[Rfam]
Rfam assigns this 76-nucleotide sequence from Candidatus Izimoplasma sp. ZiA1 to the family "Fluoride riboswitch aptamer (crcB RNA motif)". Rfam links the family to the GO terms response to fluoride and positive regulation of gene expression. A search with the family's covariance model found it, with a score of 51 bits. Taxonomically the source falls in Candidatus Izemoplasma (Bacteria, Bacillati, Mollicutes, Candidatus Izemoplasmataceae).

RNA sequence: AAUUAAUAUGGGAAUGAAGUUCUCCCUAAGUUAUAAACUUGAACCGCAAAAUAUUGCUGAUGACUUCUACCUAAUC
Number, nucleotide and partner (000 for none) at each position: 001a000002a000003u000004u000005a000006a000007u000008a000009u000010g026011g025012g024013a023014a000015u000016g067017a066018a065019g064020u063021u062022c000023u013024c012025c011026c010027u000028a000029a000030g000031u000032u000033a000034u000035a000036a000037a000038c000039u000040u000041g000042a000043a000044c000045c000046g057047c056048a055049a054050a000051a000052u000053a000054u049055u048056g047057c046058u000059g000060a000061u000062g021063a020064c019065u018066u017067c016068u000069a000070c000071c000072u000073a000074a000075u000076c000